Rfam assigns this 100-nucleotide RNA sequence from Staphylococcus saprophyticus to the family "Guanidine-I riboswitch aptamer". This family represents a conserved RNA structure found upstream of the ykkC and yxkD genes in Bacillus subtilis and related genes in other bacteria.
RNA sequence: AAUAAAGCUUUCUAGGGUUCCGCAAGGUGAUUACUUUGGUCUGGUCCGAGAGAAAGCCACAUAUUUUUAUGUGACACGGAAGGAUAAAAGCCUGGGAGAU
Numbered sequence: 001a002a003u004a005a006a007g008c009u010u011u012c013u014a015g016g017g018u019u020c021c022g023c024a025a026g027g028u029g030a031u032u033a034c035u036u037u038g039g040u041c042u043g044g045u046c047c048g049a050g051a052g053a054a055a056g057c058c059a060c061a062u063a064u065u066u067u068u069a070u071g072u073g074a075c076a077c078g079g080a081a082g083g084a085u086a087a088a089a090g091c092c093u094g095g096g097a098g099a100u
Base pairs, nucleotide, nucleotide: 007057008056009055010054011053012052015047016046020044021043022041023038024037025036026035027034028033058073059072060071061070062069063068075095077098081093082092083091